Alphaproteobacteria transfer-messenger RNA: a 363-nucleotide RNA sequence from Phenylobacterium glaciei. By type it is a non-coding RNA gene.
RNA sequence: GUUCUUCAAUCCUGAACCAAUCGGGCCUAUAUGUGCGGGGUCGGGUUUCGGCCCGACUAUGAGGAUAAACGCGCUCGUAAUAAGCGGACUGGACCCGGGUGCGAUUCCCGGCGGCUCCACCAAUCUUCCCCCCGGUUAUCGCGGGCAAGUGCGGGGCCGAUCAGCAUCGACAGACGUCUAAAGGUGUUGCUUUCUUCCGGCUUGGCCCACCGUUUCGGGCCUUUAUCUAAAUGCGAACGAUAACUUCGCUGAAGAAGUCCGUUUGGCCGCGUAAGCGACCCGAUAGAUUUCGACCUAAACUCCUAGCGUCUUAGCAGCGCUAGGCGGGGCCCGGAGGGCGCCUUGCAACAGAAGCCCUCCACC
Numbered sequence: 001g002u003u004c005u006u007c008a009a010u011c012c013u014g015a016a017c018c019a020a021u022c023g024g025g026c027c028u029a030u031a032u033g034u035g036c037g038g039g040g041u042c043g044g045g046u047u048u049c050g051g052c053c054c055g056a057c058u059a060u061g062a063g064g065a066u067a068a069a070c071g072c073g074c075u076c077g078u079a080a081u082a083a084g085c086g087g088a089c090u091g092g093a094c095c096c097g098g099g100u101g102c103g104a105u106u107c108c109c110g111g112c113g114g115c116u117c118c119a120c121c122a123a124u125c126u127u128c129c130c131c132c133c134g135g136u137u138a139u140c141g142c143g144g145g146c147a148a149g150u151g152c153g154g155g156g157c158c159g160a161u162c163a164g165c166a167u168c169g170a171c172a173g174a175c176g177u178c179u180a181a182a183g184g185u186g187u188u189g190c191u192u193u194c195u196u197c198c199g200g201c202u203u204g205g206c207c208c209a210c211c212g213u214u215u216c217g218g219g220c221c222u223u224u225a226u227c228u229a230a231a232u233g234c235g236a237a238c239g240a241u242a243a244c245u246u247c248g249c250u251g252a253a254g255a256a257g258u259c260c261g262u263u264u265g266g267c268c269g270c271g272u273a274a275g276c277g278a279c280c281c282g283a284u285a286g287a288u289u290u291c292g293a294c295c296u297a298a299a300c301u302c303c304u305a306g307c308g309u310c311u312u313a314g315c316a317g318c319g320c321u322a323g324g325c326g327g328g329g330c331c332c333g334g335a336g337g338g339c340g341c342c343u344u345g346c347a348a349c350a351g352a353a354g355c356c357c358u359c360c361a362c363c
Stems, first nucleotide, its partner, number of pairs: 040057007061197005071190002073187002076184001085176002089173003095111005112159007198212003204221005327343004333360006